[Rfam]
RNA sequence: ACGAGAUGCCCUUCGUGUCGCGGUCGAAUUGUUGCCUGAAGAACUCCAAUUCUCCCGCCACACAAGGGCAUUCUCACUUCACGACACGCUCACCCAAGCGACCACAUCGGUGGAUCGAG
Number, nucleotide and partner (000 for none) at each position: 001a000002c000003g073004a072005g000006a071007u070008g069009c068010c067011c066012u065013u064014c000015g000016u062017g061018u060019c000020g058021c057022g056023g055024u000025c000026g052027a051028a050029u049030u000031g047032u000033u000034g044035c000036c000037u000038g000039a000040a000041g000042a000043a000044c034045u000046c000047c031048a000049a029050u028051u027052c026053u000054c000055c023056c022057g021058c020059c000060a018061c017062a016063c000064a013065a012066g011067g010068g009069c008070a007071u006072u004073c003074u000075c000076a000077c000078u000079u000080c000081a000082c000083g000084a000085c000086a000087c000088g000089c000090u000091c000092a000093c000094c000095c000096a000097a000098g000099c117100g116101a115102c000103c000104a000105c112106a111107u000108c000109g000110g000111u106112g105113g000114a000115u101116c100117g099118a000119g000
RNA: Actinobacteria sRNA Ms_IGR-7
Organism: Flexivirga oryzae